[Rfam]
RNA: mir-1237 microRNA precursor family
Organism: Rhinopithecus roxellana
RNA sequence: GUGGGAGGGCCCAGGCGUGGGUAGGGGGGUGGGGUGGCAGAGCGCCGUCCCGGGGGCGGGGCCGAGGCACGGCGACCGUAACUCCUUCUGCGUCCCCCAG
Numbered sequence: 001g002u003g004g005g006a007g008g009g010c011c012c013a014g015g016c017g018u019g020g021g022u023a024g025g026g027g028g029g030u031g032g033g034g035u036g037g038c039a040g041a042g043c044g045c046c047g048u049c050c051c052g053g054g055g056g057c058g059g060g061g062c063c064g065a066g067g068c069a070c071g072g073c074g075a076c077c078g079u080a081a082c083u084c085c086u087u088c089u090g091c092g093u094c095c096c097c098c099a100g
Stems, first nucleotide, its partner, number of pairs: 002099004007095004014091001019089003023086005031079001033077003037073002042070001044068003047062006